RNA sequence: CACAUCAGCACAAGUUACUGACGUGGCAGCAAAUAGCAUCCUUGAGGGCGCGAUUUGUUGCCACGUCAGCAACUCGCGCUGACGUGG
Numbered sequence: 001c002a003c004a005u006c007a008g009c010a011c012a013a014g015u016u017a018c019u020g021a022c023g024u025g026g027c028a029g030c031a032a033a034u035a036g037c038a039u040c041c042u043u044g045a046g047g048g049c050g051c052g053a054u055u056u057g058u059u060g061c062c063a064c065g066u067c068a069g070c071a072a073c074u075c076g077c078g079c080u081g082a083c084g085u086g087g
Stems, first nucleotide, its partner, number of pairs: 001086003005082005011076001013074004018069004023064012036051002040047002
Source information: MIR7486 microRNA precursor family: an 87-nucleotide sequence from Gossypium klotzschianum. The base pairs follow the family's consensus structure, which was predicted with RNAalifold. Lineage of the source: Eukaryota > Streptophyta > Gunneridae > Malvales > Gossypium. Rfam links the family to the GO terms RISC complex and miRNA-mediated post-transcriptional gene silencing.